This 67-nucleotide RNA from Ornithorhynchus anatinus belongs to the Rfam family "MAT2A 3'UTR stem loop F". NCBI's taxonomy places the organism under Eukaryota, Eumetazoa, Vertebrata, Ornithorhynchidae, Ornithorhynchus. The sequence is in the family's curated seed alignment. The family has 26 seed sequences and 403 matches in Rfam 15.1. By type it is a cis-regulatory element. Pairs were carried over by alignment from the consensus structure, which is taken from published work.
[Rfam]
RNA sequence: CGUGGGGAGACGCUGACUUGGCUGGUGUUGUACAGAGAAGCCAGCUUGUUUACAGGCUCAUCCCAUG
Numbered sequence: 001c002g003u004g005g006g007g008a009g010a011c012g013c014u015g016a017c018u019u020g021g022c023u024g025g026u027g028u029u030g031u032a033c034a035g036a037g038a039a040g041c042c043a044g045c046u047u048g049u050u051u052a053c054a055g056g057c058u059c060a061u062c063c064c065a066u067g
Base pairs, nucleotide, nucleotide: 001067002066003065004064005063006062007061009059010058012057013056015050016049017048020046021045022044023043024042025041026040027033028032